The family of this 83-nucleotide RNA from Clostridium sp. CAG:448 is "S10-Clostridia ribosomal protein leader". The match comes from Rfam's covariance-model search (40 bits). By type it is a cis-regulatory leader. Lineage of the source: Bacteria > Bacillati > Bacillota > Clostridia > Clostridium.

[Rfam]
RNA sequence: UGAUAUGCGAUGAAACGAGAGGUUGCUGUCGGGGGACGCUCCGGCAGGGAAUUUUCGUGGAGUAUGUCCGAACAAUCGGGCGA
Numbered sequence: 001u002g003a004u005a006u007g008c009g010a011u012g013a014a015a016c017g018a019g020a021g022g023u024u025g026c027u028g029u030c031g032g033g034g035g036a037c038g039c040u041c042c043g044g045c046a047g048g049g050a051a052u053u054u055u056c057g058u059g060g061a062g063u064a065u066g067u068c069c070g071a072a073c074a075a076u077c078g079g080g081c082g083a
Base pairs, nucleotide, nucleotide: 015058016057017056019055020054021053022052026047027046028045029044030043031042032041033040065082066081067080068079069078070077